RNA sequence: UAACUUACCUGGACGGGGUCAAUGGGUGAUCAAGAAGGCCCAUGGCCUAGGUUGGUGACCUUCAUUGCACUCAGGAGGGGUGCCCGACUAAGCUCGGCCCAAGUGGUCUAGCCUACGUCAUAAUUUGUGCCAGUCCAUAUUGGUGGGAUUAUAUGGU
Numbered sequence: 001u002a003a004c005u006u007a008c009c010u011g012g013a014c015g016g017g018g019u020c021a022a023u024g025g026g027u028g029a030u031c032a033a034g035a036a037g038g039c040c041c042a043u044g045g046c047c048u049a050g051g052u053u054g055g056u057g058a059c060c061u062u063c064a065u066u067g068c069a070c071u072c073a074g075g076a077g078g079g080g081u082g083c084c085c086g087a088c089u090a091a092g093c094u095c096g097g098c099c100c101a102a103g104u105g106g107u108c109u110a111g112c113c114u115a116c117g118u119c120a121u122a123a124u125u126u127g128u129g130c131c132a133g134u135c136c137a138u139a140u141u142g143g144u145g146g147g148a149u150u151a152u153a154u155g156g157u
Stems, first nucleotide, its partner, number of pairs: 012119004016048006023042005049089002053086001055083003059079003062075002091114002094110001096108001098106002135156005141151004
RNA: U1 spliceosomal RNA